[Rfam]
RNA: c-di-AMP riboswitch aptamer (ydaO/yuaA leader)
Organism: Clostridium tagluense
RNA sequence: ACACUAUUAUUGCCUAAGUAAAAAAAACACGGAGGAACCAAGCAUUUGGGGUGAAUCACAAUUUGUGUAGGUUAAACCUUUUCCGAACCCGUCAGCUAACUCCGUAGGCAAAAGGAGAGGAUAG
Number, nucleotide and partner (000 for none) at each position: 001a000002c000003a000004c000005u000006a000007u000008u000009a000010u000011u110012g109013c108014c107015u000016a000017a000018g028019u027020a000021a000022a000023a000024a000025a000026a000027a019028c018029a105030c104031g103032g102033a101034g100035g000036a000037a000038c000039c048040a047041a000042g000043c000044a000045u000046u000047u040048g039049g090050g089051g088052u000053g000054a000055a000056u000057c067058a066059c065060a064061a000062u000063u000064u060065g059066u058067g057068u000069a000070g084071g083072u000073u000074a000075a000076a000077c000078c000079u000080u000081u000082u000083c071084c070085g000086a000087a000088c051089c050090c049091g000092u000093c000094a000095g000096c000097u000098a000099a000100c034101u033102c032103c031104g030105u029106a000107g014108g013109c012110a011111a000112a000113a000114g000115g000116a000117g000118a000119g000120g000121a000122u000123a000124g000